[Rfam]
RNA sequence: UGAUAGCGGUGAAGCGUGAGGUUGCUGUACCGGCAAAAGCCGGCGCAGGUUUUCCGUGGAGCGAAUGUCAAGUUGUUAAAACUGGCGACAA
Numbered sequence: 001u002g003a004u005a006g007c008g009g010u011g012a013a014g015c016g017u018g019a020g021g022u023u024g025c026u027g028u029a030c031c032g033g034c035a036a037a038a039g040c041c042g043g044c045g046c047a048g049g050u051u052u053u054c055c056g057u058g059g060a061g062c063g064a065a066u067g068u069c070a071a072g073u074u075g076u077u078a079a080a081a082c083u084g085g086c087g088a089c090a091a
Stems, first nucleotide, its partner, number of pairs: 014057003018054004025048004066090004072086004
Dot-bracket structure: .............(((.((((...((((................))))..)))))))........((((..((((.......)))))))).

Rfam assigns this 91-nucleotide sequence from Anaerostipes rhamnosivorans to the family "S10-Clostridia ribosomal protein leader".
It scores 79 bits against the family's covariance model.
By type it is a cis-regulatory leader.
Lineage of the source: Bacteria > Bacillati > Bacillota > Clostridia > Anaerostipes.